[Rfam]
RNA: Small nucleolar RNA snoR97
RNA sequence: AAUAAACAUUGGGUUUAGGGUCUGAAGAACUCAUAAAUUGUUGUGUUGUCUAUCAGCUUCAUCUCUGUUAAUAUCCCACGAGAAUGGAGUUAAAUAACAGCGCUACAUGU
Numbered sequence: 001a002a003u004a005a006a007c008a009u010u011g012g013g014u015u016u017a018g019g020g021u022c023u024g025a026a027g028a029a030c031u032c033a034u035a036a037a038u039u040g041u042u043g044u045g046u047u048g049u050c051u052a053u054c055a056g057c058u059u060c061a062u063c064u065c066u067g068u069u070a071a072u073a074u075c076c077c078a079c080g081a082g083a084a085u086g087g088a089g090u091u092a093a094a095u096a097a098c099a100g101c102g103c104u105a106c107a108u109g110u
Stems, first nucleotide, its partner, number of pairs: 043103006055091006062083004